RNA: Group II catalytic intron D1-D4-7
Organism: Budvicia aquatica
RNA sequence: CCGGCUAUUCCAUUAGCCGUAACCUACUGGGACAAGCGUUGCUGGCAACGGCAGGGUUUGAAGCUCCCGGAACAACGUACCCUUGUGCUACGCACGAUAAUGCACUUGUGAGAGAACAUUAUUAUCUGCAAGCAUCAUGCGGAUUAGGGG
Numbered sequence: 001c002c003g004g005c006u007a008u009u010c011c012a013u014u015a016g017c018c019g020u021a022a023c024c025u026a027c028u029g030g031g032a033c034a035a036g037c038g039u040u041g042c043u044g045g046c047a048a049c050g051g052c053a054g055g056g057u058u059u060g061a062a063g064c065u066c067c068c069g070g071a072a073c074a075a076c077g078u079a080c081c082c083u084u085g086u087g088c089u090a091c092g093c094a095c096g097a098u099a100a101u102g103c104a105c106u107u108g109u110g111a112g113a114g115a116a117c118a119u120u121a122u123u124a125u126c127u128g129c130a131a132g133c134a135u136c137a138u139g140c141g142g143a144u145u146a147g148g149g150g
Stems, first nucleotide, its partner, number of pairs: 002019006028069005033060005039054006083097006098121004106113002125143006